This 108-nucleotide sequence from Coniochaeta sp. 2T2.1 belongs to the Rfam family "tRNA". Rfam describes the family as follows. Transfer RNA (tRNA) molecules are approximately 80 nucleotides in length.
[Rfam]
RNA sequence: GGUCCCAUAGCUCAGUUGGUUAGAGCGUCGUACUAAUACUGCUCGUCUUCCGGAAUGAACUGUAUCAAGUAAAUGCGAAGGUCGAGAGUUCAACCCUCUCUGGGACCA
Numbered sequence: 001g002g003u004c005c006c007a008u009a010g011c012u013c014a015g016u017u018g019g020u021u022a023g024a025g026c027g028u029c030g031u032a033c034u035a036a037u038a039c040u041g042c043u044c045g046u047c048u049u050c051c052g053g054a055a056u057g058a059a060c061u062g063u064a065u066c067a068a069g070u071a072a073a074u075g076c077g078a079a080g081g082u083c084g085a086g087a088g089u090u091c092a093a094c095c096c097u098c099u100c101u102g103g104g105a106c107c108a
Stems, first nucleotide, its partner, number of pairs: 001107007010026004028078005084100005